[Rfam]
RNA sequence: UAAAUACCGUUCUGGAUGUUUCUUUCAGUCAUAUGUCAAAUUAAUAUAAUCUUACGACUAGAGGAACAUUCAGCAUGGUUAUAGC
Numbered sequence: 001u002a003a004a005u006a007c008c009g010u011u012c013u014g015g016a017u018g019u020u021u022c023u024u025u026c027a028g029u030c031a032u033a034u035g036u037c038a039a040a041u042u043a044a045u046a047u048a049a050u051c052u053u054a055c056g057a058c059u060a061g062a063g064g065a066a067c068a069u070u071c072a073g074c075a076u077g078g079u080u081a082u083a084g085c
Base pairs, nucleotide, nucleotide: 006079007078008077009076012073013072014071015070016069017068018067019066020065022064023063027059028058029057030056032054033053
The family of this 85-nucleotide RNA from Setaria digitata is "mir-44 microRNA precursor family". Rfam 15.1 lists 66 matches to the family in 44 species.